[Rfam]
RNA sequence: UGGUAUAAGAAGAGGCUGCCCGCUUCUCACCUGUUCGACACAUUAAGUUGUUGACUGGUAAGCACACGAUCGACUGUAAUAUGUAGGCAUCUACAUGUACUUAUAUCGGCGGGCAGACAUACAUCUUAUGUCUGCUCGUUUUUUUAUUU
Numbered sequence: 001u002g003g004u005a006u007a008a009g010a011a012g013a014g015g016c017u018g019c020c021c022g023c024u025u026c027u028c029a030c031c032u033g034u035u036c037g038a039c040a041c042a043u044u045a046a047g048u049u050g051u052u053g054a055c056u057g058g059u060a061a062g063c064a065c066a067c068g069a070u071c072g073a074c075u076g077u078a079a080u081a082u083g084u085a086g087g088c089a090u091c092u093a094c095a096u097g098u099a100c101u102u103a104u105a106u107c108g109g110c111g112g113g114c115a116g117a118c119a120u121a122c123a124u125c126u127u128a129u130g131u132c133u134g135c136u137c138g139u140u141u142u143u144u145u146a147u148u149u
Stems, first nucleotide, its partner, number of pairs: 011027006029059003037052003040048002112136010
Rfam assigns this 149-nucleotide RNA sequence from Psychrobacillus soli to the family "Ribosomal protein L20 leader". Rfam links the family to the GO term regulation of gene expression. By type it is a cis-regulatory leader. The family's consensus secondary structure was predicted with CMfinder. It scores 59 bits against the family's covariance model. Rfam describes the family as follows. This family is a putative r-protein leader autoregulatory structure found in B. subtilis and other low-GC Gram-positive bacteria. It is located in the 5' untranslated regions of mRNAs encoding initiation factor 3 followed by ribosomal proteins L35 and L20 (infC-rpmI-rplT).